[Rfam]
RNA sequence: UUCCUCCCCACGCUUACCACAGGCAGCUCGUCCUCCGGCUGCCUGUACAGAACGGGGAGGGAGAGCACGGCCCCGAAUGCACCCCAGCCGGGCAGACCGUGCCCCGGCUGGAUUGUGAGCGGGGACACACGU
Numbered sequence: 001u002u003c004c005u006c007c008c009c010a011c012g013c014u015u016a017c018c019a020c021a022g023g024c025a026g027c028u029c030g031u032c033c034u035c036c037g038g039c040u041g042c043c044u045g046u047a048c049a050g051a052a053c054g055g056g057g058a059g060g061g062a063g064a065g066c067a068c069g070g071c072c073c074c075g076a077a078u079g080c081a082c083c084c085c086a087g088c089c090g091g092g093c094a095g096a097c098c099g100u101g102c103c104c105c106g107g108c109u110g111g112a113u114u115g116u117g118a119g120c121g122g123g124g125a126c127a128c129a130c131g132u
Stems, first nucleotide, its partner, number of pairs: 002061007020045003026039003030035001071124005085110003089106004
Rfam assigns this 132-nucleotide sequence from Asarcornis scutulata to the family "Small nucleolar RNA SNORA51".
Pairs were carried over by alignment from the consensus structure, which was predicted with PFOLD.